[Rfam]
RNA sequence: AGGCGCCCAACGUGGGGCUCCAGCACGGGGGAUCCAGUGAAGGACGCCGUUCGAGUGGCCGGCAGAAAGGAAAGCAAAGGAAAAGAAAGUAAAAGAAAAGAGGGAACGACGUGGGAACCUGCUACGUCUGCACCCCUCGGGUAAGUGAACGGCGAUUAUGGGUCAAACACUGAGCCAAGAUAAGAUGUUCGUUGAAGGACUGAAAAAGGCUAUCAAGGCACGAGGAGUAAAGGUGAAAAUUAAGCAUUUGUGUCAGUAUUUUGAUUAUAUUAAAGAAGUUUGUCCUU
Numbered sequence: 001a002g003g004c005g006c007c008c009a010a011c012g013u014g015g016g017g018c019u020c021c022a023g024c025a026c027g028g029g030g031g032a033u034c035c036a037g038u039g040a041a042g043g044a045c046g047c048c049g050u051u052c053g054a055g056u057g058g059c060c061g062g063c064a065g066a067a068a069g070g071a072a073a074g075c076a077a078a079g080g081a082a083a084a085g086a087a088a089g090u091a092a093a094a095g096a097a098a099a100g101a102g103g104g105a106a107c108g109a110c111g112u113g114g115g116a117a118c119c120u121g122c123u124a125c126g127u128c129u130g131c132a133c134c135c136c137u138c139g140g141g142u143a144a145g146u147g148a149a150c151g152g153c154g155a156u157u158a159u160g161g162g163u164c165a166a167a168c169a170c171u172g173a174g175c176c177a178a179g180a181u182a183a184g185a186u187g188u189u190c191g192u193u194g195a196a197g198g199a200c201u202g203a204a205a206a207a208g209g210c211u212a213u214c215a216a217g218g219c220a221c222g223a224g225g226a227g228u229a230a231a232g233g234u235g236a237a238a239a240u241u242a243a244g245c246a247u248u249u250g251u252g253u254c255a256g257u258a259u260u261u262u263g264a265u266u267a268u269a270u271u272a273a274a275g276a277a278g279u280u281u282g283u284c285c286u287u
Base pairs, nucleotide, nucleotide: 006031007030008029012026013025014024100138101137102135103134107130110126111125112124113123114122146165147164148163150162153160154159172213174210175209176208221263222262223261224260225259227257228256231249232248233247234246235245272287273286275284276283
Annotation
The family of this 287-nucleotide RNA from Molossus molossus is "Mason-Pfizer monkey virus packaging signal". NCBI's taxonomy places the organism under Eukaryota, Euteleostomi, Tetrapoda, Eutheria, Molossus. About the family: This family represents a group of sequences that are related to the Mason-Pfizer monkey virus (MPMV) packaging signal. A search with the family's covariance model found it, with a score of 104 bits. The family's RNA type in Rfam is cis-regulatory element.